[Rfam]
A member of the RNA family "Small nucleolar RNA SNORA49" from Hymenochirus boettgeri, 125 nucleotides long. Gene Ontology terms of the family: nucleolus and RNA processing. The match comes from Rfam's covariance-model search (46 bits).
RNA sequence: CAUCCUCAUCCUUACUCCAGGGUGUUUAUUGUCUGUAUGCUCCCUGGCAUUAACUGAGGAUACAAUAAUUGCUUUCUAUACCCCUGUUAAUUGUUUUUUUCUCAGGGUAGGAGAUUGCAAACAAA
Numbered sequence: 001c002a003u004c005c006u007c008a009u010c011c012u013u014a015c016u017c018c019a020g021g022g023u024g025u026u027u028a029u030u031g032u033c034u035g036u037a038u039g040c041u042c043c044c045u046g047g048c049a050u051u052a053a054c055u056g057a058g059g060a061u062a063c064a065a066u067a068a069u070u071g072c073u074u075u076c077u078a079u080a081c082c083c084c085u086g087u088u089a090a091u092u093g094u095u096u097u098u099u100u101c102u103c104a105g106g107g108u109a110g111g112a113g114a115u116u117g118c119a120a121a122c123a124a125a
Base pairs, nucleotide, nucleotide: 003060004059005058006057007056008055017047018046019045020044021043022042024040025039027037070119071118072117082107083106084105085104086103089100090099